EcpR1: a 113-nucleotide RNA sequence from Breoghania corrubedonensis.
[Rfam]
RNA sequence: ACACCCUACGGAGUGCUCAGGUCCGCCGCAUCUCCUGGGUCCGUGGGGUUAGGCCGGCCGGGAAGCGGGUCAGAGUGGCCUCCUCGUAACGCCCGCUUCCCGCCGGUCACCUU
Numbered sequence: 001a002c003a004c005c006c007u008a009c010g011g012a013g014u015g016c017u018c019a020g021g022u023c024c025g026c027c028g029c030a031u032c033u034c035c036u037g038g039g040u041c042c043g044u045g046g047g048g049u050u051a052g053g054c055c056g057g058c059c060g061g062g063a064a065g066c067g068g069g070u071c072a073g074a075g076u077g078g079c080c081u082c083c084u085c086g087u088a089a090c091g092c093c094c095g096c097u098u099c100c101c102g103c104c105g106g107u108c109a110c111c112u113u
Stems, first nucleotide, its partner, number of pairs: 003049008016039006052108007060100003
On this family, see Reinkensmeier et al., Genes (Basel) 2011: "Conservation and Occurrence of Trans-Encoded sRNAs in the Rhizobiales".
Perviously named SmelC291, SmrC10, or Sra33. According to its overproduction phenotype it was renamed Elongated Cell Phenotype RNA1. Induced by stress,EcpR1 negatively regulates cell cycle master regulatory genes dnaA and gcrA at post-transcriptional level by base pairing between its strongly conserved GC-rich loop and the target mRNAs.